RNA sequence: UCAAACAAGCUGGGGUGCCAAGUGGCUGAGAUGAUACCCAUAGAACCUGAGCAGGAUAAUGCCUGCUAGGGAGCUUGGUUUGUUUACGA
Number, nucleotide and partner (000 for none) at each position: 001u000002c000003a000004a000005a000006c077007a076008a075009g074010c073011u040012g039013g038014g037015g000016u034017g026018c025019c024020a000021a000022g000023u000024g019025g018026c017027u000028g000029a000030g000031a000032u000033g000034a016035u000036a000037c014038c013039c012040a011041u000042a000043g000044a000045a000046c070047c069048u068049g067050a000051g000052c065053a064054g063055g062056a000057u000058a000059a000060u000061g000062c055063c054064u053065g052066c000067u049068a048069g047070g046071g000072a000073g010074c009075u008076u007077g006078g000079u000080u000081u000082g000083u000084u000085u000086a000087c000088g000089a000